[Rfam]
RNA sequence: AUCGAGUAAUGCUAAACCAUGCGUGAGUAUGGGACAGAAAGCCACGGAUCUCUAAUUUGGAGAUAGCCGAGUUGCCUCA
Numbered sequence: 001a002u003c004g005a006g007u008a009a010u011g012c013u014a015a016a017c018c019a020u021g022c023g024u025g026a027g028u029a030u031g032g033g034a035c036a037g038a039a040a041g042c043c044a045c046g047g048a049u050c051u052c053u054a055a056u057u058u059g060g061a062g063a064u065a066g067c068c069g070a071g072u073u074g075c076c077u078c079a
Stems, first nucleotide, its partner, number of pairs: 012037002017032006040073003045069003048064007